A member of the RNA family "Streptomyces-metH RNA" from Streptomyces sp. MnatMP-M17, 120 nucleotides long. Taxonomically the source falls in Streptomyces (Bacteria, Bacillati, Actinomycetes, Kitasatosporales). The family's consensus secondary structure is taken from published work.
RNA sequence: GCCGUCGGCCCGGCGAGAUCCACACCGCGGAGCGGCCCGCCCGGCUACGCUGGCCGGGUGCGCCUUCCAAUCAGAGGGCGCAAAGCCGACAGCCGUCGCAUCCCAGGGAGUACUUUCAUG
Numbered sequence: 001g002c003c004g005u006c007g008g009c010c011c012g013g014c015g016a017g018a019u020c021c022a023c024a025c026c027g028c029g030g031a032g033c034g035g036c037c038c039g040c041c042c043g044g045c046u047a048c049g050c051u052g053g054c055c056g057g058g059u060g061c062g063c064c065u066u067c068c069a070a071u072c073a074g075a076g077g078g079c080g081c082a083a084a085g086c087c088g089a090c091a092g093c094c095g096u097c098g099c100a101u102c103c104c105a106g107g108g109a110g111u112a113c114u115u116u117c118a119u120g
Stems, first nucleotide, its partner, number of pairs: 059082004064077004085099002088097003